[Rfam]
RNA sequence: CAGUUUCCUGCUUCAACAGUGCUUGGAUGGACCAG
Numbered sequence: 001c002a003g004u005u006u007c008c009u010g011c012u013u014c015a016a017c018a019g020u021g022c023u024u025g026g027a028u029g030g031a032c033c034a035g
Stems, first nucleotide, its partner, number of pairs: 001035001003033001005031001007030002010028001012027005017021001

About this RNA: The record is a 35-nucleotide RNA from Sciurus carolinensis, which matches "Iron response element I" in Rfam. It is annotated as a cis-regulatory element. Pairs were carried over by alignment from the consensus structure, which is taken from published work. For this family Rfam cites "Identification of the iron-responsive element for the translational regulation of human ferritin mRNA" (Hentze et al., Science, 1987). A search with the family's covariance model found it, with a score of 42 bits. NCBI's taxonomy places the organism under Eukaryota, Gnathostomata, Tetrapoda, Mammalia, Sciurus.